[Rfam]
RNA sequence: UACUGUUUGUGAUGAUUAAAGCAAUGGGAAUCUCUCUGAAUGAGGCUGAGGAGGACUCUUUGCACUGAAACAGUA
Numbered sequence: 001u002a003c004u005g006u007u008u009g010u011g012a013u014g015a016u017u018a019a020a021g022c023a024a025u026g027g028g029a030a031u032c033u034c035u036c037u038g039a040a041u042g043a044g045g046c047u048g049a050g051g052a053g054g055a056c057u058c059u060u061u062g063c064a065c066u067g068a069a070a071c072a073g074u075a
Stems, first nucleotide, its partner, number of pairs: 001075007
RNA: Small nucleolar RNA SNORD79
Organism: Urocolius indicus